RNA sequence: UUCCACAGCUACUAGUCUGAAGCUGUUCUUAUGAUGGAAGCUGUGGCAUUCCUCUGUGGGAAGAAAAUGAUAUACACCUCUCUUAGUAAAACAUAAAGUAGGUACAUGUGUGACAGACAUAA
Numbered sequence: 001u002u003c004c005a006c007a008g009c010u011a012c013u014a015g016u017c018u019g020a021a022g023c024u025g026u027u028c029u030u031a032u033g034a035u036g037g038a039a040g041c042u043g044u045g046g047c048a049u050u051c052c053u054c055u056g057u058g059g060g061a062a063g064a065a066a067a068u069g070a071u072a073u074a075c076a077c078c079u080c081u082c083u084u085a086g087u088a089a090a091a092c093a094u095a096a097a098g099u100a101g102g103u104a105c106a107u108g109u110g111u112g113a114c115a116g117a118c119a120u121a122a
Stems, first nucleotide, its partner, number of pairs: 003059004017046003021042004072111005077102003080098002083093001
RNA: Small nucleolar RNA SNORA41
Organism: Orycteropus afer